[Rfam]
RNA sequence: GGUCGAUGAUGACAAAGAAGUUUUCUGAGGGCACAGGAAAAUUCCACCCUAUUACCUCCUUGGCUCCCAGCAGUCCCCAUUCUAUCAUGCCAUAGCAGAGCUGUGAUUGUGGAGGUGACUGCUGACAGUUUGGGAUUAAUUCAGUUCCAGUUCUCCACAGUAAAGGGAGUUGUGGCACCAAAUGUAAUCCAACAAAUCUAGUGAAAGGAGCUCAGGGUGAUGGGGUGUCCUCAAUUGCUGUGCAUGAUCAAAGGUUUUCAAGCUGAGACC
Numbered sequence: 001g002g003u004c005g006a007u008g009a010u011g012a013c014a015a016a017g018a019a020g021u022u023u024u025c026u027g028a029g030g031g032c033a034c035a036g037g038a039a040a041a042u043u044c045c046a047c048c049c050u051a052u053u054a055c056c057u058c059c060u061u062g063g064c065u066c067c068c069a070g071c072a073g074u075c076c077c078c079a080u081u082c083u084a085u086c087a088u089g090c091c092a093u094a095g096c097a098g099a100g101c102u103g104u105g106a107u108u109g110u111g112g113a114g115g116u117g118a119c120u121g122c123u124g125a126c127a128g129u130u131u132g133g134g135a136u137u138a139a140u141u142c143a144g145u146u147c148c149a150g151u152u153c154u155c156c157a158c159a160g161u162a163a164a165g166g167g168a169g170u171u172g173u174g175g176c177a178c179c180a181a182a183u184g185u186a187a188u189c190c191a192a193c194a195a196a197u198c199u200a201g202u203g204a205a206a207g208g209a210g211c212u213c214a215g216g217g218u219g220a221u222g223g224g225g226u227g228u229c230c231u232c233a234a235u236u237g238c239u240g241u242g243c244a245u246g247a248u249c250a251a252a253g254g255u256u257u258u259c260a261a262g263c264u265g266a267g268a269c270c
Stems, first nucleotide, its partner, number of pairs: 001270004041248003046226008064210004068124007082109001084107006090100001132190001134189005147175003153169004